[Rfam]
Shown here is a 95-nucleotide sequence from Heyndrickxia sporothermodurans, a member of the family "Glycine riboswitch aptamer".

RNA sequence: AUGAUUUCAGGGGGAGAGACUGCUUAAAUGCAGAGCCGAAGGAGCAAGUAAUGGAUCAUUAUGAAUCUCUCAGGCAAAAAGACUUCUGAUUGACG
Number, nucleotide and partner (000 for none) at each position: 001a000002u000003g000004a000005u000006u000007u089008c088009a087010g086011g085012g084013g083014g000015a000016g000017a000018g000019a000020c033021u032022g031023c030024u000025u000026a000027a000028a000029u000030g023031c022032a021033g020034a000035g075036c074037c073038g071039a070040a000041g000042g069043a068044g067045c000046a000047a000048g062049u061050a060051a059052u000053g000054g000055a000056u000057c000058a000059u051060u050061a049062u048063g000064a000065a000066u000067c044068u043069c042070u039071c038072a000073g037074g036075c035076a000077a000078a000079a000080a000081g000082a000083c013084u012085u011086c010087u009088g008089a007090u000091u000092g000093a000094c000095g000
Rfam links the family to the GO term glycine biosynthetic process.
NCBI's taxonomy places the organism under Bacteria, Bacillati, Caryophanales, Bacillaceae, Heyndrickxia.